This 56-nucleotide sequence belongs to the Rfam family "Glutamine riboswitch aptamer (glnA leader)". For this family Rfam cites "Structural and Dynamic Basis for Low-Affinity, High-Selectivity Binding of L-Glutamine by the Glutamine Riboswitch" (Ren et al., Cell Rep, 2015).
RNA sequence: UACGUUGAUAGUCUGUUGACUACGCAAGUAAGCCAGAAGGGCUGAAGCAACGGGAA
Numbered sequence: 001u002a003c004g005u006u007g008a009u010a011g012u013c014u015g016u017u018g019a020c021u022a023c024g025c026a027a028g029u030a031a032g033c034c035a036g037a038a039g040g041g042c043u044g045a046a047g048c049a050a051c052g053g054g055a056a
Stems, first nucleotide, its partner, number of pairs: 003052005009022005025053001031043003